Overview: The family of this 74-nucleotide RNA sequence from Ciceribacter sp. L1K22 is "tRNA". It is annotated as a transfer RNA. Its family is annotated with triplet codon-amino acid adaptor activity in the Gene Ontology. The source organism's lineage runs through Bacteria, Pseudomonadati, Alphaproteobacteria, Hyphomicrobiales and Ciceribacter. The match comes from Rfam's covariance-model search (49 bits). Pairs were carried over by alignment from the consensus structure, which is taken from published work.
RNA sequence: GGCCCGCUGGCGCAACCGGAUAGCGCAGAGGAUUUCUAGCCUUCAGGUUCCCGGUUCGAGUCCGGGGCGGGCCU
Numbered sequence: 001g002g003c004c005c006g007c008u009g010g011c012g013c014a015a016c017c018g019g020a021u022a023g024c025g026c027a028g029a030g031g032a033u034u035u036c037u038a039g040c041c042u043u044c045a046g047g048u049u050c051c052c053g054g055u056u057c058g059a060g061u062c063c064g065g066g067g068c069g070g071g072c073c074u
Stems, first nucleotide, its partner, number of pairs: 001073007010026004028044004050066005